[Rfam]
RNA sequence: UCGAGGCACGGGACUUAGCUAAUUGGCGAACAUUGGUCGGUUGUAGAUAUUGUUCACAGUGGCUAAGUUCAGUGCCUGAA
Numbered sequence: 001u002c003g004a005g006g007c008a009c010g011g012g013a014c015u016u017a018g019c020u021a022a023u024u025g026g027c028g029a030a031c032a033u034u035g036g037u038c039g040g041u042u043g044u045a046g047a048u049a050u051u052g053u054u055c056a057c058a059g060u061g062g063c064u065a066a067g068u069u070c071a072g073u074g075c076c077u078g079a080a
Base pairs, nucleotide, nucleotide: 011070012069013068014067015066016065017064018063019062020061026057028055029054030053031052032051
RNA: mir-27 microRNA precursor family
Organism: Scleropages formosus